[Rfam]
RNA sequence: GUUUAUCUAUCGAGUUUUGUGCGUUGCACAAAACAUCGUAUUAUUGUAUGCGGUUUGUAAACAAACCGCUUGAAAAAACUUUUUUUGCAAAUUGAUUCGCUAUCCGCUUUAGCGGAUACGAUAAAAAAUUUCCUUGCAGAACAGAACCGCAAGGGUCUGAUAUUUGCUACAAAAAGUUUUUAUAGGA
Numbered sequence: 001g002u003u004u005a006u007c008u009a010u011c012g013a014g015u016u017u018u019g020u021g022c023g024u025u026g027c028a029c030a031a032a033a034c035a036u037c038g039u040a041u042u043a044u045u046g047u048a049u050g051c052g053g054u055u056u057g058u059a060a061a062c063a064a065a066c067c068g069c070u071u072g073a074a075a076a077a078a079c080u081u082u083u084u085u086u087g088c089a090a091a092u093u094g095a096u097u098c099g100c101u102a103u104c105c106g107c108u109u110u111a112g113c114g115g116a117u118a119c120g121a122u123a124a125a126a127a128a129u130u131u132c133c134u135u136g137c138a139g140a141a142c143a144g145a146a147c148c149g150c151a152a153g154g155g156u157c158u159g160a161u162a163u164u165u166g167c168u169a170c171a172a173a174a175a176g177u178u179u180u181u182a183u184a185g186g187a
Base pairs, nucleotide, nucleotide: 012037013036014034015033016032017031018030019029020028021027050069051068052067053066054065055064056063057062074181075180076179077178078177079176080175081174082173083172084171087167088166089165090164091163092162

TD-1 RNA: a 187-nucleotide RNA sequence from Treponema denticola. Rfam 15.1 lists 147 matches to the family in 9 species. The sequence is in the family's curated seed alignment. The organism belongs to Treponema denticola, within Bacteria.